[Rfam]
The record is a 101-nucleotide RNA from Schumannella sp. 10F1B-5-1, which matches "mraW RNA" in Rfam. The match comes from Rfam's covariance-model search (53 bits). NCBI's taxonomy places the organism under Bacteria, Bacillati, Actinomycetota, Actinomycetes, Schumannella.

RNA sequence: UAGUGCUCCUCGGGCUCGACCCUCAGCCGCGCCACCCUGCCCCACUUCCCCGGGGGCAGGUCCGGCCGCGGAUGGGGAUCCGGCCCGAGGAUCGCCGCCCG
Numbered sequence: 001u002a003g004u005g006c007u008c009c010u011c012g013g014g015c016u017c018g019a020c021c022c023u024c025a026g027c028c029g030c031g032c033c034a035c036c037c038u039g040c041c042c043c044a045c046u047u048c049c050c051c052g053g054g055g056g057c058a059g060g061u062c063c064g065g066c067c068g069c070g071g072a073u074g075g076g077g078a079u080c081c082g083g084c085c086c087g088a089g090g091a092u093c094g095c096c097g098c099c100c101g
Stems, first nucleotide, its partner, number of pairs: 010088007018080002021077005027071004031066003036060008
The family's RNA type in Rfam is cis-regulatory element.